[Rfam]
Rfam assigns this 97-nucleotide RNA sequence from Acholeplasma palmae to the family "SAM riboswitch aptamer (S box leader)".
RNA sequence: UACUUAUUAAGAGCUAUCGAGGCGUCAGUGGCCUGUGAAGUAGCAGCAACCUAUUUAAUUAGGUGCUUACCACUAGGGGGAAACCCAUCAAUAAGGA
Numbered sequence: 001u002a003c004u005u006a007u008u009a010a011g012a013g014c015u016a017u018c019g020a021g022g023c024g025u026c027a028g029u030g031g032c033c034u035g036u037g038a039a040g041u042a043g044c045a046g047c048a049a050c051c052u053a054u055u056u057a058a059u060u061a062g063g064u065g066c067u068u069a070c071c072a073c074u075a076g077g078g079g080g081a082a083a084c085c086c087a088u089c090a091a092u093a094a095g096g097a
Stems, first nucleotide, its partner, number of pairs: 001097001003095006013044005021033003028074001045067004050063002053059002076086003

Background: It scores 49 bits against the family's covariance model. Lineage of the source: Bacteria > Bacillati > Acholeplasmatales > Acholeplasma > Acholeplasma palmae.